About this RNA: Shown here is a 418-nucleotide sequence from Rhodovibrio salinarum, a member of the family "Bacterial RNase P class A". Taxonomically the source falls in Rhodovibrio (Bacteria, Pseudomonadota, Rhodospirillales, Rhodovibrionaceae). Its family is annotated with tRNA processing, ribonuclease P activity and dimeric ribonuclease P complex in the Gene Ontology.
RNA sequence: CCAGACGGCCGGACGGUCGCUCUUCCGCGCCUGAACGCGCGGAAGGGAGGAAAGUCCGGGCUCCACGGAAGCGCGGUGCCGGGUAACGCCCGGCGGGGGCGACCCCAGGGAAAGUGCCACAGAAAGCAAACCGCCCAUGGCCCGGCGCAUGGCGCCGAGUGCCCAUCGGGUAAGGGUGAAAGGGUGCGGUAAGAGCGCACCGCGCCCCUGGUGACAGGGGCGGCACGGUAAACCCCACCGGGAGCAAGACCAGAUAGGGGCGGCAUGUCGGGGCCUUUGCGCCCCGACAGGUGAGCUUCCGCACCGCUGCCCGGGUAGGUCGCGCGAGGCGUCCGGCAACGGACGUCCCAGAGGAAUGGCCGUCGCCCGCCGGUGUCACCGGCGGGUACAGAACCCGGCUUACAGGCCGUCUGGUCCG
Dot-bracket structure: ((((((((((((((((((.(((((((((((......)))))))))))....[[[.[[[[[((((.....[[..((((((((((.....)))))(((((....)))).)((...(((((............((((((...(.......................)...))))..)).......((((((.......))))))(((((((((....)))))))).)..)))..)))))))))))))...((((......((((((..........................((((...]]...)))).)))))).....))))......((((((((....))))))))..........))))))).............................]]]]]]]].).))))))))))....